[Rfam]
RNA sequence: GCGGAAGGACGGCCUUCCGCAUUCUCACACAACCGCCCGCGGGGACGGCCCUG
Numbered sequence: 001g002c003g004g005a006a007g008g009a010c011g012g013c014c015u016u017c018c019g020c021a022u023u024c025u026c027a028c029a030c031a032a033c034c035g036c037c038c039g040c041g042g043g044g045a046c047g048g049c050c051c052u053g
Stems, first nucleotide, its partner, number of pairs: 001020008040053005